[Rfam]
RNA sequence: GAGCAAGUCUCCAGCAUGUUUGGAUCUUCUGUGACCCUGUACGUUUCUACAGUGCUUGUCAGAACAGUUCUAAAACAGUUUGAGGCUUUGUCCUGCUCCAUCCAGGGCAAAGUUAUAGACAUUUCAUACAACU
Numbered sequence: 001g002a003g004c005a006a007g008u009c010u011c012c013a014g015c016a017u018g019u020u021u022g023g024a025u026c027u028u029c030u031g032u033g034a035c036c037c038u039g040u041a042c043g044u045u046u047c048u049a050c051a052g053u054g055c056u057u058g059u060c061a062g063a064a065c066a067g068u069u070c071u072a073a074a075a076c077a078g079u080u081u082g083a084g085g086c087u088u089u090g091u092c093c094u095g096c097u098c099c100a101u102c103c104a105g106g107g108c109a110a111a112g113u114u115a116u117a118g119a120c121a122u123u124u125c126a127u128a129c130a131a132c133u
Stems, first nucleotide, its partner, number of pairs: 003059006017043003022037002025034002071126001073124003086112006093105003